[Rfam]
RNA sequence: UCCAGUGGUAGUCAGCUGUCCAGAGCAGUACUGUGCCUGUGAUAGUGUUACACUGCUGGCAGAUGAAGACCAGUCAUUUCUUCUGGCUGCUGUUGUCACCGUUCUGGAGACAGCUGGUGCCAAAAAGAAGUGGUGUUGUGCUUCCCUGAGAGCGUGCUGAAGAUUGACUUUCCCUCUUUAGCGCUAGUCUGGAAGCAUACAUA
Numbered sequence: 001u002c003c004a005g006u007g008g009u010a011g012u013c014a015g016c017u018g019u020c021c022a023g024a025g026c027a028g029u030a031c032u033g034u035g036c037c038u039g040u041g042a043u044a045g046u047g048u049u050a051c052a053c054u055g056c057u058g059g060c061a062g063a064u065g066a067a068g069a070c071c072a073g074u075c076a077u078u079u080c081u082u083c084u085g086g087c088u089g090c091u092g093u094u095g096u097c098a099c100c101g102u103u104c105u106g107g108a109g110a111c112a113g114c115u116g117g118u119g120c121c122a123a124a125a126a127g128a129a130g131u132g133g134u135g136u137u138g139u140g141c142u143u144c145c146c147u148g149a150g151a152g153c154g155u156g157c158u159g160a161a162g163a164u165u166g167a168c169u170u171u172c173c174c175u176c177u178u179u180a181g182c183g184c185u186a187g188u189c190u191g192g193a194a195g196c197a198u199a200c201a202u203a
Stems, first nucleotide, its partner, number of pairs: 002059008011051002015046006021039003068136001069134004074128002082124001084122004090116001092114001094112004099107002138198008154184003158180006